[Rfam]
The record is an 85-nucleotide RNA sequence from Bombyx mori, which matches "mir-2807 microRNA precursor family" in Rfam. Rfam links the family to the GO terms miRNA-mediated post-transcriptional gene silencing and RISC complex. The organism belongs to Bombyx, within Eukaryota.
RNA sequence: UUAACUUAAAUUUGUAUGGAGUUGGAACAGCUUCCCUUCGUUUGCCGCUAGAGGCGCUGUUCCAACUUCAUACAUAUUCGAGUUA
Number, nucleotide and partner (000 for none) at each position: 001u000002u000003a000004a000005c000006u000007u000008a000009a078010a077011u076012u000013u074014g073015u072016a071017u000018g069019g000020a067021g066022u065023u064024g063025g062026a061027a060028c059029a058030g000031c000032u000033u000034c000035c053036c000037u051038u000039c000040g048041u047042u000043u000044g000045c000046c000047g041048c040049u000050a000051g037052a000053g035054g000055c000056g000057c000058u029059g028060u027061u026062c025063c024064a023065a022066c021067u020068u000069c018070a000071u016072a015073c014074a013075u000076a011077u010078u009079c000080g000081a000082g000083u000084u000085a000